The record is a 102-nucleotide sequence, which matches "RT-5 RNA" in Rfam. The family's consensus secondary structure is taken from published work. Rfam's curators put it in the seed alignment.

[Rfam]
RNA sequence: UUGCGCCUGCGGAGGACGCAGCGCAGCCCAUCCGGGGCCUUGCAGGCGGCCGGGCUGCGUACCGUCCCGUGAACCGCAAUUUUGCGGAUUCAAAAUCUUCCC
Numbered sequence: 001u002u003g004c005g006c007c008u009g010c011g012g013a014g015g016a017c018g019c020a021g022c023g024c025a026g027c028c029c030a031u032c033c034g035g036g037g038c039c040u041u042g043c044a045g046g047c048g049g050c051c052g053g054g055c056u057g058c059g060u061a062c063c064g065u066c067c068c069g070u071g072a073a074c075c076g077c078a079a080u081u082u083u084g085c086g087g088a089u090u091c092a093a094a095a096u097c098u099u100c101c102c
Base pairs, nucleotide, nucleotide: 005047006046007045008044009043010042011041014067015066017064018063021060022059023058024057025056026055027054028053036051037050038049039048074087075086076085077084078083
Dot-bracket structure: ....[[[[[[[..((.((..((((((((.......((((.]]]]]]])))).))))))))..)).))......(((((....)))))...............